[Rfam]
RNA sequence: UCGUAACACAAACUGGUGCUAAAGGGUCCUGCCCAAUGGCUACUGACAGGUGCUAUCGGGGUAGGGACCCUUUAGCACCGGUUGGUAACACGAA
Numbered sequence: 001u002c003g004u005a006a007c008a009c010a011a012a013c014u015g016g017u018g019c020u021a022a023a024g025g026g027u028c029c030u031g032c033c034c035a036a037u038g039g040c041u042a043c044u045g046a047c048a049g050g051u052g053c054u055a056u057c058g059g060g061g062u063a064g065g066g067a068c069c070c071u072u073u074a075g076c077a078c079c080g081g082u083u084g085g086u087a088a089c090a091c092g093a094a
Stems, first nucleotide, its partner, number of pairs: 003091002008086002011083017029065002032060003036056002043049002
RNA: MIR5387 microRNA precursor family